[Rfam]
RNA sequence: UCCGCCGAGGGGCGCUGCGACCGCACGGUACACCGCGCGGCCAGGCUCGGCGGGGCUCAACACGUACCAACGGCGCCCGGUUUGG
Numbered sequence: 001u002c003c004g005c006c007g008a009g010g011g012g013c014g015c016u017g018c019g020a021c022c023g024c025a026c027g028g029u030a031c032a033c034c035g036c037g038c039g040g041c042c043a044g045g046c047u048c049g050g051c052g053g054g055g056c057u058c059a060a061c062a063c064g065u066a067c068c069a070a071c072g073g074c075g076c077c078c079g080g081u082u083u084g085g
Base pairs, nucleotide, nucleotide: 002053003052004051005050006049007048008047021040022039023038024037026035
RNA: SAH (S-adenosyl-L-homocysteine) riboswitch aptamer
Organism: Marilutibacter alkalisoli